[Rfam]
RNA sequence: AUUUGGCUUAGUUAGGGGGCAAAGACUAAACUUUUUUGAUGCAAAGAUUCAAUCUUUGGAUCUUUAAAACUAAGGCCUUUUGAAGGGACACUUUGUUCUUCUUCAUCAAUUGUCCUAUAAGCAUCUUUUGAACACUC
Numbered sequence: 001a002u003u004u005g006g007c008u009u010a011g012u013u014a015g016g017g018g019g020c021a022a023a024g025a026c027u028a029a030a031c032u033u034u035u036u037u038g039a040u041g042c043a044a045a046g047a048u049u050c051a052a053u054c055u056u057u058g059g060a061u062c063u064u065u066a067a068a069a070c071u072a073a074g075g076c077c078u079u080u081u082g083a084a085g086g087g088a089c090a091c092u093u094u095g096u097u098c099u100u101c102u103u104c105a106u107c108a109a110u111u112g113u114c115c116u117a118u119a120a121g122c123a124u125c126u127u128u129u130g131a132a133c134a135c136u137c
Stems, first nucleotide, its partner, number of pairs: 004021002007018003038062003042058001046054003070130001072128002074125002079121004085116006092109001
Shown here is a 137-nucleotide RNA sequence from Nicotiana tabacum, a member of the family "Small nucleolar RNA U19".
It scores 66 bits against the family's covariance model.
A reference for the family is Marker et al. (2002), "Experimental RNomics: identification of 140 candidates for small non-messenger RNAs in the plant Arabidopsis thaliana", Curr Biol.
The family's RNA type in Rfam is H/ACA-box small nucleolar RNA.
Taxonomically the source falls in Nicotiana (Eukaryota, Magnoliopsida, Mesangiospermae, Nicotianoideae).